Shown here is a 118-nucleotide RNA from Gilliamella sp. Occ3-1, a member of the family "Ribosomal S15 leader". From the family's description: The E. coli Ribosomal S15 gene 5' UTR can form two alternative structures. One that is a series of three hairpins, The other includes a pseudoknot. This structure causes translational regulation of the S15 protein. The alignment of this family contains only the final two hairpins which are conserved in other species, and also includes the complete region that forms the alternate structures. Pairs were carried over by alignment from the consensus structure, which is taken from published work. Its Rfam clan is "Ribosomal Protein S15 Leader clan". A reference for the family is Benard et al. (1996), "Pseudoknot and translational control in the expression of the S15 ribosomal protein", Biochimie.

[Rfam]
Nucleotides: 118
Base pairs, nucleotide, nucleotide: 007026009024010023011022012021049071051069052068053067054066
Number, partner (000 for none) and nucleotide at each position: 001000a002000g003000g004000a005000a006000u007026g008000u009024c010023u011022g012021a013000a014000u015000u016000a017000g018000a019000g020000a021012u022011c023010g024009g025000u026007c027000a028000u029000u030000c031000c032000a033000u034000u035000u036000u037000u038000u039000a040000u041000a042000u043000u044000u045000a046000u047000u048000u049071u050000a051069a052068g053067a054066g055000g056000u057000u058000u059000a060000u061000u062000a063000u064000g065000u066054c067053u068052c069051u070000a071049a072000c073000u074000g075000u076000a077000g078000a079000a080000g081000c082000u083000a084000a085000a086000g087000c088000g089000a090000a091000a092000a093000u094000c095000g096000u097000u098000g099000c100000c101000g102000a103000a104000u105000a106000u107000g108000g109000u110000c111000g112000u113000g114000g115000c116000a117000c118000u